[Rfam]
RNA sequence: GUGGGUGGGCGCAUGAUCGCUCCGGCUCGGGCUGGAGAGGAAAGUCCGAACACCACAGGGCACGGUGGUUCGUAACGCGAACGCUGGGUAACCAGGGGAAAGUGCCACAGAAAUGACACCGCCGAUGGAACCGCGGUUCACAGGCAAGGGUGAAAUGGCGAGGCAAGAGCUCACCGCCCGGCUGGCGACAGUCGGGGCAUGGUAAACCCCACCGGGUGCAAGACCAAAUAGGGAGGCGAUCGAGGGCGGCCCGUCCGAUGCCUCCGGGUAGGUUGCACGAGAUGCCGGGUGACCGGCAUUCCAGUUAAAUGAUCAUGGCCGGCCCCGCCGCAAGGCGCGGGCCGGGACAGAAUUCGGCUUACAGCCCACCCCUUUUU
Number, nucleotide and partner (000 for none) at each position: 001g373002u000003g371004g370005g369006u368007g367008g366009g365010c364011g362012c317013a316014u315015g314016a313017u312018c311019g000020c037021u036022c035023c034024g033025g032026c031027u000028c000029g000030g000031g026032c025033u024034g023035g022036a021037g020038a000039g000040g000041a000042a360043a359044g358045u000046c357047c356048g355049a354050a353051c218052a217053c216054c215055a000056c000057a000058g252059g251060g250061c249062a000063c214064g213065g212066u211067g210068g082069u081070u080071c079072g078073u000074a000075a000076c000077g000078c072079g071080a070081a069082c068083g000084c095085u094086g093087g092088g000089u000090a000091a000092c087093c086094a085095g084096g000097g209098g208099a000100a000101a000102g207103u206104g203105c202106c201107a000108c000109a000110g000111a000112a000113a000114u000115g000116a000117c000118a000119c149120c148121g145122c144123c143124g000125a000126u140127g139128g138129a137130a000131c000132c000133g000134c000135g000136g000137u129138u128139c127140a126141c000142a000143g123144g122145c121146a000147a000148g120149g119150g000151u000152g000153a000154a000155a000156u000157g175158g174159c000160g172161a171162g170163g000164c000165a000166a000167g000168a000169g000170c162171u161172c160173a000174c158175c157176g198177c196178c195179c194180g193181g192182c191183u190184g189185g000186c000187g000188a000189c184190a183191g182192u181193c180194g179195g178196g177197g000198c176199a000200u000201g106202g105203u104204a000205a000206a103207c102208c098209c097210c067211a066212c065213c064214g063215g054216g053217u052218g051219c000220a000221a000222g274223a273224c272225c271226a000227a000228a000229u000230a000231g000232g265233g264234a263235g262236g261237c260238g000239a000240u000241c000242g000243a000244g256245g255246g254247c253248g000249g061250c060251c059252c058253g247254u246255c245256c244257g000258a000259u000260g237261c236262c235263u234264c233265c232266g000267g000268g000269u000270a000271g225272g224273u223274u222275g000276c000277a000278c000279g000280a000281g300282a299283u298284g297285c296286c295287g294288g293289g000290u000291g000292a000293c288294c287295g286296g285297c284298a283299u282300u281301c000302c000303a000304g000305u000306u000307a000308a000309a000310u000311g018312a017313u016314c015315a014316u013317g012318g000319c000320c000321g000322g000323c000324c000325c000326c000327g000328c000329c000330g000331c000332a000333a000334g000335g000336c000337g000338c000339g000340g000341g000342c000343c000344g000345g000346g000347a000348c000349a000350g000351a000352a000353u050354u049355c048356g047357g046358c044359u043360u042361a000362c011363a000364g010365c009366c008367c007368a006369c005370c004371c003372c000373u001374u000375u000376u000377u000
Source information: This 377-nucleotide RNA sequence from Desulfobulbus oralis belongs to the Rfam family "Bacterial RNase P class A". The source organism's lineage runs through Bacteria, Pseudomonadati, Thermodesulfobacteriota, Desulfobulbia and Desulfobulbus. From the family's description: Ribonuclease P (RNase P) is a ubiquitous endoribonuclease, found in archaea, bacteria and eukarya as well as chloroplasts and mitochondria. The family's consensus secondary structure is taken from published work.